[Rfam]
The record is an 82-nucleotide RNA from Mus musculus, which matches "mir-2861 microRNA precursor family" in Rfam. The family's consensus secondary structure was predicted with RNAalifold. The family has 2 seed sequences and 82 matches in Rfam 15.1.

RNA sequence: CUCCUCUGCAGCUCCGGCUCCCCCUGGCCUCCCGGGAACUACAAGUCCCAGGGGGCCUGGCGGCGGGCGGAGACCGGAAGAG
Numbered sequence: 001c002u003c004c005u006c007u008g009c010a011g012c013u014c015c016g017g018c019u020c021c022c023c024c025u026g027g028c029c030u031c032c033c034g035g036g037a038a039c040u041a042c043a044a045g046u047c048c049c050a051g052g053g054g055g056c057c058u059g060g061c062g063g064c065g066g067g068c069g070g071a072g073a074c075c076g077g078a079a080g081a082g
Base pairs, nucleotide, nucleotide: 001082002081003080005078006077007076008075012072013071014070015069016068018066019065021063022062023060024059026057027056028055029054030053031052032051034049035048036047037046